[Rfam]
RNA sequence: AACUCUUUUAAUUUAGUCCAGAGAGGCUAAGAAGGAGUUCUCCAGCAAGGAACAUCUGUACCUUAUGCUGCUGUGAACUCUUAUGACCUCUCAUAAGAGUUAUUUUUUU
Numbered sequence: 001a002a003c004u005c006u007u008u009u010a011a012u013u014u015a016g017u018c019c020a021g022a023g024a025g026g027c028u029a030a031g032a033a034g035g036a037g038u039u040c041u042c043c044a045g046c047a048a049g050g051a052a053c054a055u056c057u058g059u060a061c062c063u064u065a066u067g068c069u070g071c072u073g074u075g076a077a078c079u080c081u082u083a084u085g086a087c088c089u090c091u092c093a094u095a096a097g098a099g100u101u102a103u104u105u106u107u108u109u
Stems, first nucleotide, its partner, number of pairs: 003037007013030006042070001046067001047064004052059002073104001076101011
RNA: PyrR binding site
Organism: Brochothrix campestris